[Rfam]
RNA sequence: CGGUGAUCCUCGGAAAAGUAAUCAGGGUUCUAAACCGGCACUUGGUUGUCGAAAAACUCUUACCCUGGGGAAAGUCCCUGGAUAUUGGGCUGAAAAGUCUGCGUCGAAUAGAUGCACAGUUUUCACAACGUUUACAGAUAAAGGAUCCAUGACAGCGGAAACGUCGAGUGAUAUCUGUAAACACGUGAAAAUGUUCAUCAAAGAUCUAGGAACACUUUAUAUGAAACAGAAUAGGGCUUACAGAAGGAGCACC
Numbered sequence: 001c002g003g004u005g006a007u008c009c010u011c012g013g014a015a016a017a018g019u020a021a022u023c024a025g026g027g028u029u030c031u032a033a034a035c036c037g038g039c040a041c042u043u044g045g046u047u048g049u050c051g052a053a054a055a056a057c058u059c060u061u062a063c064c065c066u067g068g069g070g071a072a073a074g075u076c077c078c079u080g081g082a083u084a085u086u087g088g089g090c091u092g093a094a095a096a097g098u099c100u101g102c103g104u105c106g107a108a109u110a111g112a113u114g115c116a117c118a119g120u121u122u123u124c125a126c127a128a129c130g131u132u133u134a135c136a137g138a139u140a141a142a143g144g145a146u147c148c149a150u151g152a153c154a155g156c157g158g159a160a161a162c163g164u165c166g167a168g169u170g171a172u173a174u175c176u177g178u179a180a181a182c183a184c185g186u187g188a189a190a191a192u193g194u195u196c197a198u199c200a201a202a203g204a205u206c207u208a209g210g211a212a213c214a215c216u217u218u219a220u221a222u223g224a225a226a227c228a229g230a231a232u233a234g235g236g237c238u239u240a241c242a243g244a245a246g247g248a249g250c251a252c253c
Base pairs, nucleotide, nucleotide: 002253003252004251005250007248008247009246010245015218016217017216018215019214022068023067024066025065026064027063028062036051037050038049039048040047072239073238074237076236077235078234079233088099089098090097091096100116101115102114103113104112119192120191121190126187127186129185130184131183132180133179134178135177136176137175138174139173162166
The record is a 253-nucleotide RNA sequence from Panagrolaimus sp. ES5, which matches "RNase MRP" in Rfam. A search with the family's covariance model found it, with a score of 63 bits. About the family: RNase MRP is an enzymatically active ribonucleoprotein with two distinct roles in eukaryotes.